Description
The record is a 64-nucleotide sequence from Myotis lucifugus, which matches "mir-9242 microRNA precursor family" in Rfam. The match comes from Rfam's covariance-model search (63 bits). Taxonomically the source falls in Myotis (Eukaryota, Opisthokonta, Metazoa, Bilateria).

[Rfam]
RNA sequence: GGCCUCCCUCUGUGGGGCAAUCAAUCGCUGAGCUCUGCAAUUGAUCGCCCAGCAGAGGCAGGCC
Numbered sequence: 001g002g003c004c005u006c007c008c009u010c011u012g013u014g015g016g017g018c019a020a021u022c023a024a025u026c027g028c029u030g031a032g033c034u035c036u037g038c039a040a041u042u043g044a045u046c047g048c049c050c051a052g053c054a055g056a057g058g059c060a061g062g063c064c
Base pairs, nucleotide, nucleotide: 001064002063003062004061005060007058008057009056010055011054012053013052015050016049017048018047020045021044022043023042024041025040027038028037030035